RNA sequence: AAUAAGUAUCAAGAGACAGCUUAAGUGCUGAACCAACCGAGCAGACAUAGCCACGGUGGUAAAAAUGAUACGGGUUUAAGGAUUUAGUAUUAAUCAUUAAAUUAAAA
Numbered sequence: 001a002a003u004a005a006g007u008a009u010c011a012a013g014a015g016a017c018a019g020c021u022u023a024a025g026u027g028c029u030g031a032a033c034c035a036a037c038c039g040a041g042c043a044g045a046c047a048u049a050g051c052c053a054c055g056g057u058g059g060u061a062a063a064a065a066u067g068a069u070a071c072g073g074g075u076u077u078a079a080g081g082a083u084u085u086a087g088u089a090u091u092a093a094u095c096a097u098u099a100a101a102u103u104a105a106a107a
Stems, first nucleotide, its partner, number of pairs: 006071005017030004032060003037056003041051002073095004

Rfam assigns this 107-nucleotide RNA sequence from Prevotella sp. CAG:592 to the family "SAM-I/IV (S-adenosyl methionine) riboswitch aptamer". A search with the family's covariance model found it, with a score of 52 bits. The family is grouped with related families in Rfam's "SAM clan". A reference for the family is Trausch et al. (2014), "Structural basis for diversity in the SAM clan of riboswitches", PNAS.